[Rfam]
RNA: Eukaryotic large subunit ribosomal RNA, nucleotides 1651 to 2101
Organism: Desmophyllum pertusum
RNA sequence: GGUAGUAGCAAAUAUUCAAAUGAGAACUUUGAAGACCGAAGUGGAGAAAGGUUCCAUGUGAACAGCAGUUGGACAUGGGUUAGUCGAUCCUAAGAGAUAGGGAAAUUCCGUGUCAAAGCGCCCGAUCCUGGGCCGCCUAUCGAAAGGGAAUCGGGUUAAUAUUCCCGAACCGGAACACGGAUAUUGCCACCUAGUGGCAGGUGCGGCAACGCAACCGAACCCGGAGACGCCGGCGGGAGCCCCGGAAAGAGUUCUCUUUUCUUUUUAACAGGCUUUCACCCUGAAAUCAGAUUGUCUGGAGAUAGGGUUUAAUGCCUGGUAAAGCACCACACUUCUUGUGGUGUCCGGUGCGUUCUCGACGGCCCUUGAAAAUCCGGGGGAGACAAUGAUUUUCGUGUCCGGUCGUACUCAUAACCGCAGCAGGUCUCCAAGGUGAGCAGCCUCUGGUUGA
Numbered sequence: 001g002g003u004a005g006u007a008g009c010a011a012a013u014a015u016u017c018a019a020a021u022g023a024g025a026a027c028u029u030u031g032a033a034g035a036c037c038g039a040a041g042u043g044g045a046g047a048a049a050g051g052u053u054c055c056a057u058g059u060g061a062a063c064a065g066c067a068g069u070u071g072g073a074c075a076u077g078g079g080u081u082a083g084u085c086g087a088u089c090c091u092a093a094g095a096g097a098u099a100g101g102g103a104a105a106u107u108c109c110g111u112g113u114c115a116a117a118g119c120g121c122c123c124g125a126u127c128c129u130g131g132g133c134c135g136c137c138u139a140u141c142g143a144a145a146g147g148g149a150a151u152c153g154g155g156u157u158a159a160u161a162u163u164c165c166c167g168a169a170c171c172g173g174a175a176c177a178c179g180g181a182u183a184u185u186g187c188c189a190c191c192u193a194g195u196g197g198c199a200g201g202u203g204c205g206g207c208a209a210c211g212c213a214a215c216c217g218a219a220c221c222c223g224g225a226g227a228c229g230c231c232g233g234c235g236g237g238a239g240c241c242c243c244g245g246a247a248a249g250a251g252u253u254c255u256c257u258u259u260u261c262u263u264u265u266u267a268a269c270a271g272g273c274u275u276u277c278a279c280c281c282u283g284a285a286a287u288c289a290g291a292u293u294g295u296c297u298g299g300a301g302a303u304a305g306g307g308u309u310u311a312a313u314g315c316c317u318g319g320u321a322a323a324g325c326a327c328c329a330c331a332c333u334u335c336u337u338g339u340g341g342u343g344u345c346c347g348g349u350g351c352g353u354u355c356u357c358g359a360c361g362g363c364c365c366u367u368g369a370a371a372a373u374c375c376g377g378g379g380g381a382g383a384c385a386a387u388g389a390u391u392u393u394c395g396u397g398u399c400c401g402g403u404c405g406u407a408c409u410c411a412u413a414a415c416c417g418c419a420g421c422a423g424g425u426c427u428c429c430a431a432g433g434u435g436a437g438c439a440g441c442c443u444c445u446g447g448u449u450g451a
Stems, first nucleotide, its partner, number of pairs: 015033006034449004043429004049409002054078006063071002085405003089147002094141002097111002100109003120133003151168005171401004176397005181391001186212002220378006229363004234358007242348003245265006269318005278308006287299004325343007415424002431443004
Dot-bracket structure: ..............((((((.......))))))((((.....((((..((...((((((...((.....)).))))))......(((.((...((.((.(((....)))))........(((........)))......))....))...(((((........)))))..((((.((((((....((.......................)).......((((((...((((.(((((((.(((((((((.........))))))...(((((....((((((...((((.....))))...)))))).....)))))......(((((((.....)))))))..)))...))))))).)))).........))))))............).))))))))).)))..)).....((......)).)))).((((.....))))..))))..